[Rfam]
RNA: Mu-gpT-DE RNA
RNA sequence: CCCUGACAGAAUGUUCCACGUAGAACAAUCUGACACUAGCCACGACAGGAGAUACUCAUG
Numbered sequence: 001c002c003c004u005g006a007c008a009g010a011a012u013g014u015u016c017c018a019c020g021u022a023g024a025a026c027a028a029u030c031u032g033a034c035a036c037u038a039g040c041c042a043c044g045a046c047a048g049g050a051g052a053u054a055c056u057c058a059u060g
Stems, first nucleotide, its partner, number of pairs: 002049004007032004
Dot-bracket structure: .((((.((((..................)))).............))))...........